The family of this 159-nucleotide RNA from Streptomyces scopuliridis is "c-di-AMP riboswitch aptamer (ydaO/yuaA leader)". The match comes from Rfam's covariance-model search (60 bits). Lineage of the source: Bacteria > Bacillati > Kitasatosporales > Streptomyces > Streptomyces scopuliridis.
RNA sequence: AAUUCGCAUCCACCCAUCAACGCGUGGCAGGAGCGGGGGACCCAGGUAGUACGCCGAUCCGGAACUCCGGGCGGCUUGGGGUGAAGUCGCGCACCACGCGCGGCCGGGCCGCUCCAGCCCGAACCCGACAGCUCACCUCGCAGGCGCCGGAGAGGAAUU
Numbered sequence: 001a002a003u004u005c006g007c008a009u010c011c012a013c014c015c016a017u018c019a020a021c022g023c024g025u026g027g028c029a030g031g032a033g034c035g036g037g038g039g040a041c042c043c044a045g046g047u048a049g050u051a052c053g054c055c056g057a058u059c060c061g062g063a064a065c066u067c068c069g070g071g072c073g074g075c076u077u078g079g080g081g082u083g084a085a086g087u088c089g090c091g092c093a094c095c096a097c098g099c100g101c102g103g104c105c106g107g108g109c110c111g112c113u114c115c116a117g118c119c120c121g122a123a124c125c126c127g128a129c130a131g132c133u134c135a136c137c138u139c140g141c142a143g144g145c146g147c148c149g150g151a152g153a154g155g156a157a158u159u
Stems, first nucleotide, its partner, number of pairs: 003032003033141006043078005079126003087103004106120004